[Rfam]
RNA: Small nucleolar RNA SNORD79
Nucleotides: 080
Stems, first nucleotide, its partner, number of pairs: 001080007
Number, partner (000 for none) and nucleotide at each position: 001080u002079a003078c004077u005076g006075u007074u008000g009000g010000u011000g012000a013000u014000g015000a016000u017000u018000g019000g020000u021000u022000u023000u024000u025000a026000a027000g028000c029000a030000a031000u032000g033000g034000g035000a036000a037000u038000c039000u040000c041000u042000c043000u044000g045000a046000a047000a048000g049000a050000g051000g052000a053000u054000g055000a056000g057000g058000a059000g060000g061000a062000c063000u064000c065000u066000u067000a068000a069000a070000c071000u072000g073000a074007a075006a076005c077004a078003g079002u080001a